RNA: RNase MRP
RNA sequence: UCCAUGGCUGAAGAUUUGCUUGCAAGGUCUACGAACGGUCAGUAAUCUGACAGUAAUACCUUGGGGAAAGUCUCCUGCCUUUAUGCGGAAACGCAAUGGAUAAUAGACUCCAUUUGGAUUUCAUGCAAAAGUUGUGGUGGUAUAUUGCCAUGAUGUUUGGCUUCAGUUGUUCCUCUGAACUCUGGAGCCAAUUCACAUCCUGGGGCCAACGAUAUGUCACUAACUGCUUUUGGGUGGCGUUCAAUAUUCCCAGCUGGAUUCCAGUUGGUGAUCACUUCGGCAACGGGAAUAUGUUUCCUAAACGAUAGUUAUAGCAAAUGAUUUUGUUAAAACUUGAUUAACACAAUGGAGCUUACUUCAAUCCAUGG
Numbered sequence: 001u002c003c004a005u006g007g008c009u010g011a012a013g014a015u016u017u018g019c020u021u022g023c024a025a026g027g028u029c030u031a032c033g034a035a036c037g038g039u040c041a042g043u044a045a046u047c048u049g050a051c052a053g054u055a056a057u058a059c060c061u062u063g064g065g066g067a068a069a070g071u072c073u074c075c076u077g078c079c080u081u082u083a084u085g086c087g088g089a090a091a092c093g094c095a096a097u098g099g100a101u102a103a104u105a106g107a108c109u110c111c112a113u114u115u116g117g118a119u120u121u122c123a124u125g126c127a128a129a130a131g132u133u134g135u136g137g138u139g140g141u142a143u144a145u146u147g148c149c150a151u152g153a154u155g156u157u158u159g160g161c162u163u164c165a166g167u168u169g170u171u172c173c174u175c176u177g178a179a180c181u182c183u184g185g186a187g188c189c190a191a192u193u194c195a196c197a198u199c200c201u202g203g204g205g206c207c208a209a210c211g212a213u214a215u216g217u218c219a220c221u222a223a224c225u226g227c228u229u230u231u232g233g234g235u236g237g238c239g240u241u242c243a244a245u246a247u248u249c250c251c252a253g254c255u256g257g258a259u260u261c262c263a264g265u266u267g268g269u270g271a272u273c274a275c276u277u278c279g280g281c282a283a284c285g286g287g288a289a290u291a292u293g294u295u296u297c298c299u300a301a302a303c304g305a306u307a308g309u310u311a312u313a314g315c316a317a318a319u320g321a322u323u324u325u326g327u328u329a330a331a332a333c334u335u336g337a338u339u340a341a342c343a344c345a346a347u348g349g350a351g352c353u354u355a356c357u358u359c360a361a362u363c364c365a366u367g368g
Stems, first nucleotide, its partner, number of pairs: 002368006009360003014319006023063006038051005068354003072351004084095004206280002209277001217271004254264004321338003326333001